[Rfam]
RNA sequence: UACUUGGUUGAUCCUGCCAAGGAAGCACACUUAGGUCAUAGAUUAAGCCAUGCAAGUGUUAGUUCAGGUAACGAAACUGCGAAUAGCUCAUUAAUACGCUCAGAAUCUAUUUGGCGGCGACCAACAGGUCUUAAAUGGAUAGCAGCAGCAACUCUGGUGCUAAUACAUGCGAUUGUUUCUCCAGAUGUGAAUUAUGGAGGAAAAGUUGACCUCAUCAGAGGCACGCCAUUCGACUGAGUGACCUAUCAGCUUGUACUUAGGGUCUUUACCUAGGUAGGCUAUCACGGGUAACGGGCGGUUACCGUCGGACUGCCGGAGAAGGCGCCUGAGAGAUAGCGACUAUAUCCACGGGUAGCAGCAGGCGCGAAACUUUCCCACUCGAGACUUUCGGAGGAGGUAAUGACCAGUUCCAUUGGUGCCUUUUGGUACUGUGGAUAGGGGUACGGUUUUCCACCGUACCGAAACCUAGCAGAGGGCCAGUCUGGUGCCAGCAGCUGCGGUAAUUCCAGCUCUGCGAGUUUGCUCCCAUAUUGUUG
Numbered sequence: 001u002a003c004u005u006g007g008u009u010g011a012u013c014c015u016g017c018c019a020a021g022g023a024a025g026c027a028c029a030c031u032u033a034g035g036u037c038a039u040a041g042a043u044u045a046a047g048c049c050a051u052g053c054a055a056g057u058g059u060u061a062g063u064u065c066a067g068g069u070a071a072c073g074a075a076a077c078u079g080c081g082a083a084u085a086g087c088u089c090a091u092u093a094a095u096a097c098g099c100u101c102a103g104a105a106u107c108u109a110u111u112u113g114g115c116g117g118c119g120a121c122c123a124a125c126a127g128g129u130c131u132u133a134a135a136u137g138g139a140u141a142g143c144a145g146c147a148g149c150a151a152c153u154c155u156g157g158u159g160c161u162a163a164u165a166c167a168u169g170c171g172a173u174u175g176u177u178u179c180u181c182c183a184g185a186u187g188u189g190a191a192u193u194a195u196g197g198a199g200g201a202a203a204a205g206u207u208g209a210c211c212u213c214a215u216c217a218g219a220g221g222c223a224c225g226c227c228a229u230u231c232g233a234c235u236g237a238g239u240g241a242c243c244u245a246u247c248a249g250c251u252u253g254u255a256c257u258u259a260g261g262g263u264c265u266u267u268a269c270c271u272a273g274g275u276a277g278g279c280u281a282u283c284a285c286g287g288g289u290a291a292c293g294g295g296c297g298g299u300u301a302c303c304g305u306c307g308g309a310c311u312g313c314c315g316g317a318g319a320a321g322g323c324g325c326c327u328g329a330g331a332g333a334u335a336g337c338g339a340c341u342a343u344a345u346c347c348a349c350g351g352g353u354a355g356c357a358g359c360a361g362g363c364g365c366g367a368a369a370c371u372u373u374c375c376c377a378c379u380c381g382a383g384a385c386u387u388u389c390g391g392a393g394g395a396g397g398u399a400a401u402g403a404c405c406a407g408u409u410c411c412a413u414u415g416g417u418g419c420c421u422u423u424u425g426g427u428a429c430u431g432u433g434g435a436u437a438g439g440g441g442u443a444c445g446g447u448u449u450u451c452c453a454c455c456g457u458a459c460c461g462a463a464a465c466c467u468a469g470c471a472g473a474g475g476g477c478c479a480g481u482c483u484g485g486u487g488c489c490a491g492c493a494g495c496u497g498c499g500g501u502a503a504u505u506c507c508a509g510c511u512c513u514g515c516g517a518g519u520u521u522g523c524u525c526c527c528a529u530a531u532u533g534u535u536g
Stems, first nucleotide, its partner, number of pairs: 004020005021526003025523003029519003034405005039399002041365001047363003051360003056080002061078003068072001087318003097240003102235002106233002112228004135168003142160003146156003178200006210221004242288003249279003254276008292315003295311001296307004320341002323338003343354004371396001373395003379391005411433003415430006440460002444456003469515006482509004491498002
RNA: Eukaryotic small subunit ribosomal RNA, nucleotides 1 to 536
Organism: Trichomonas vaginalis